A member of the RNA family "Lysine riboswitch aptamer" from Anaerocolumna sedimenticola, 182 nucleotides long.
[Rfam]
RNA sequence: AGGUGAGGUAGAGGCGCGAUAUUUAACAGUCUUUAGCGGAGUUUGAGAAGCAAAGAUGCUAUUGAGAAGGAAAUGUCGCCGAAGUGGAUAAUAUACUCAGGAUUAUCUGCUGGGCCUGCAGUUAAUAGCUGUAGGACUGUCUCAAUGAACAUCCCAGUUUGUUGAGUUGUGCUAUCUCGUUU
Numbered sequence: 001a002g003g004u005g006a007g008g009u010a011g012a013g014g015c016g017c018g019a020u021a022u023u024u025a026a027c028a029g030u031c032u033u034u035a036g037c038g039g040a041g042u043u044u045g046a047g048a049a050g051c052a053a054a055g056a057u058g059c060u061a062u063u064g065a066g067a068a069g070g071a072a073a074u075g076u077c078g079c080c081g082a083a084g085u086g087g088a089u090a091a092u093a094u095a096c097u098c099a100g101g102a103u104u105a106u107c108u109g110c111u112g113g114g115c116c117u118g119c120a121g122u123u124a125a126u127a128g129c130u131g132u133a134g135g136a137c138u139g140u141c142u143c144a145a146u147g148a149a150c151a152u153c154c155c156a157g158u159u160u161g162u163u164g165a166g167u168u169g170u171g172c173u174a175u176c177u178c179g180u181u182u
Stems, first nucleotide, its partner, number of pairs: 006177006016079009031064001034061005083111010094100001112138002115135008141166009

Rfam describes the family as follows. Riboswitches are metabolite binding domains within certain messenger RNAs that serve as precision sensors for their corresponding targets. Allosteric rearrangement of mRNA structure is mediated by ligand binding, and this results in modulation of gene expression.
Rfam links the family to the GO term lysine biosynthetic process.